[Rfam]
RNA sequence: UGGGAGUUUGAUGCCAUAGCAGAAGUGCUCAUGGUGCGAUCCUGUCAGAUUCCAAUGAAUCUGCAAAUUCUGCU
Numbered sequence: 001u002g003g004g005a006g007u008u009u010g011a012u013g014c015c016a017u018a019g020c021a022g023a024a025g026u027g028c029u030c031a032u033g034g035u036g037c038g039a040u041c042c043u044g045u046c047a048g049a050u051u052c053c054a055a056u057g058a059a060u061c062u063g064c065a066a067a068u069u070c071u072g073c074u
Stems, first nucleotide, its partner, number of pairs: 013042001015038001018074007025037003046063007
RNA: Mammalian CPEB3 ribozyme